[Rfam]
RNA sequence: GGCCAGGGGGAAAGAAAAGAUAUAUGCUAAAACACCUAAUAUGGGCAAGCAGGGAGCUGGACAGAUAUGCACUUAACCCUGACC
Numbered sequence: 001g002g003c004c005a006g007g008g009g010g011a012a013a014g015a016a017a018a019g020a021u022a023u024a025u026g027c028u029a030a031a032a033c034a035c036c037u038a039a040u041a042u043g044g045g046c047a048a049g050c051a052g053g054g055a056g057c058u059g060g061a062c063a064g065a066u067a068u069g070c071a072c073u074u075a076a077c078c079c080u081g082a083c084c
Stems, first nucleotide, its partner, number of pairs: 001084002004081005
A member of the RNA family "HIV gag stem loop 3 (GSL3)" from Lentivirus humimdef1, 84 nucleotides long. The family's consensus secondary structure was predicted with PFOLD. By type it is a cis-regulatory element. From the family's description: This family consists of several HIV gag stem loop 3 (GSL3) sequences. GSL3 is known to direct specific packaging of HIV-1 genomic RNA. Deletion of GSL3 leads to decreases in both viral RNA packaging and dimerisation. Rfam's curators put it in the seed alignment. Rfam links the family to the GO term viral RNA genome packaging. NCBI's taxonomy places the organism under Viruses, Pararnavirae, Ortervirales, Retroviridae, Lentivirus humimdef1. A reference for the family is Rong et al. (2003), "Deletion of stem-loop 3 is compensated by second-site mutations within the Gag protein of human immunodeficiency virus type 1", Virology.